RNA sequence: AUACAGUGAUGUGGACACCUUCUCAGUAGUUCCUUAUACCUUUCCCAGGCUUCAUAUAAUGAUUCUCCUUCCUGCUGCAUGAAAGAUGUAAUUUCUCCUCUUAGUUU
Numbered sequence: 001a002u003a004c005a006g007u008g009a010u011g012u013g014g015a016c017a018c019c020u021u022c023u024c025a026g027u028a029g030u031u032c033c034u035u036a037u038a039c040c041u042u043u044c045c046c047a048g049g050c051u052u053c054a055u056a057u058a059a060u061g062a063u064u065c066u067c068c069u070u071c072c073u074g075c076u077g078c079a080u081g082a083a084a085g086a087u088g089u090a091a092u093u094u095c096u097c098c099u100c101u102u103a104g105u106u107u
Stems, first nucleotide, its partner, number of pairs: 001107001003105002005102002057074002
A member of the RNA family "Plant small nucleolar RNA R71" from Abrus precatorius, 107 nucleotides long. Taxonomically the source falls in Abrus (Eukaryota, Streptophyta, Pentapetalae, Fabaceae). For this family Rfam cites "Plant snoRNAs: functional evolution and new modes of gene expression" (Brown et al., Trends Plant Sci, 2003). By type it is a C/D-box small nucleolar RNA. It scores 57 bits against the family's covariance model. Its family is annotated with RNA processing and nucleolus in the Gene Ontology. Pairs were carried over by alignment from the consensus structure, which was predicted with PFOLD.